Rfam assigns this 120-nucleotide sequence from Aegilops tauschii to the family "MIR9672 microRNA precursor family". Taxonomically the source falls in Aegilops (Eukaryota, Viridiplantae, Magnoliopsida, Poaceae). The sequence is in the family's curated seed alignment.
RNA sequence: GUGAAGGCGAUGCUUAAUGACAGUCGUGGUGUCCUAGGUGAAGACGAUGCUUAAUGGCCAGCGUAGACAGUCGCCUGGCUCUUCUAGGAUACCACGACUGUCAUUAAGCAUCAUCUUCAC
Dot-bracket structure: (((((((.((((((((((((((((((((((((((((((.((...............(((((((........)).))))))).)))))))))))))))))))))))))))))).)))))))
About this RNA
The family's consensus secondary structure was predicted with RNAalifold.